[Rfam]
RNA sequence: GGGAUCAGAGGACGGAAGAGGCAGCCGUCGCCCACCAAAAGGUAUUAGGAGAUGUGGGAGUGUAGCCCCACCUGAUCCC
Dot-bracket structure: ((((((((..(((((.....[[[.))))).(..(((....))).....)....(((((..]]]...)))))))))))))
RNA: skipping-rope RNA
Organism: Thermanaeromonas toyohensis